[Rfam]
RNA sequence: UCCCAGUCUAGCAGAAUCCUUUCUGCACAGACUAGAUUCUCUGAUACUUAGUGUGCGGAAACGCUUCUGCUAUACUGGUG
Numbered sequence: 001u002c003c004c005a006g007u008c009u010a011g012c013a014g015a016a017u018c019c020u021u022u023c024u025g026c027a028c029a030g031a032c033u034a035g036a037u038u039c040u041c042u043g044a045u046a047c048u049u050a051g052u053g054u055g056c057g058g059a060a061a062c063g064c065u066u067c068u069g070c071u072a073u074a075c076u077g078g079u080g
Stems, first nucleotide, its partner, number of pairs: 001080001004077004009072008018063001020061010032051002
Dot-bracket structure: (..((((.((((((((.(.((((((((((..((................)))))))))))).).)))))))).))))..)
Rfam assigns this 80-nucleotide RNA sequence from Hucho hucho to the family "mir-147 microRNA precursor family". The literature on the family includes a 2008 paper in BMC Genomics by Kawaji et al., "Hidden layers of human small RNAs". The source organism's lineage runs through Eukaryota, Bilateria, Teleostomi, Salmoniformes and Hucho.